RNA sequence: GGCGUAAAGAGCGUGUAGGCGGAUAUAUAAGUCAGAAGUGAAAUCCAAUAGCUUAACUAUUGAACUGCUUUUGAAACUGUAUAUCUAGAAUGUGGGAGAGGUAGAUGGAAUUUCUGGUGUAGGGGUAAAAUCCGUAGAGAUCAGAAGGAAUACCGAUUGCGAAGGCGAUCUACUGGAACAUUAUUGACGCUGAGACGCGAAAGCGUGGGGAGCAAACAGGAUUAGAUACCCUGGUAGUCCACGCCCUAAACGAUGCACACUAGUUGUUGUGAGGCUAGACCUUGCAGUAAUGCAGUUAACACAUUAAGUGUGCCGCCUGGGGAGUACGGUCGCAAGAUUAAAACUCAAAGGAAU
Numbered sequence: 001g002g003c004g005u006a007a008a009g010a011g012c013g014u015g016u017a018g019g020c021g022g023a024u025a026u027a028u029a030a031g032u033c034a035g036a037a038g039u040g041a042a043a044u045c046c047a048a049u050a051g052c053u054u055a056a057c058u059a060u061u062g063a064a065c066u067g068c069u070u071u072u073g074a075a076a077c078u079g080u081a082u083a084u085c086u087a088g089a090a091u092g093u094g095g096g097a098g099a100g101g102u103a104g105a106u107g108g109a110a111u112u113u114c115u116g117g118u119g120u121a122g123g124g125g126u127a128a129a130a131u132c133c134g135u136a137g138a139g140a141u142c143a144g145a146a147g148g149a150a151u152a153c154c155g156a157u158u159g160c161g162a163a164g165g166c167g168a169u170c171u172a173c174u175g176g177a178a179c180a181u182u183a184u185u186g187a188c189g190c191u192g193a194g195a196c197g198c199g200a201a202a203g204c205g206u207g208g209g210g211a212g213c214a215a216a217c218a219g220g221a222u223u224a225g226a227u228a229c230c231c232u233g234g235u236a237g238u239c240c241a242c243g244c245c246c247u248a249a250a251c252g253a254u255g256c257a258c259a260c261u262a263g264u265u266g267u268u269g270u271g272a273g274g275c276u277a278g279a280c281c282u283u284g285c286a287g288u289a290a291u292g293c294a295g296u297u298a299a300c301a302c303a304u305u306a307a308g309u310g311u312g313c314c315g316c317c318u319g320g321g322g323a324g325u326a327c328g329g330u331c332g333c334a335a336g337a338u339u340a341a342a343a344c345u346c347a348a349a350g351g352a353a354u
Stems, first nucleotide, its partner, number of pairs: 001317003009314001011198004016192001018191003022085007030078002032074009046062006089185003092181003100174007107151001111147008122133003159166002203244006212238002217233004255313006263291012295302002319346003328339004

Bacterial small subunit ribosomal RNA: a 354-nucleotide part of an RNA from Arcobacter caeni. Clan: SSU clan.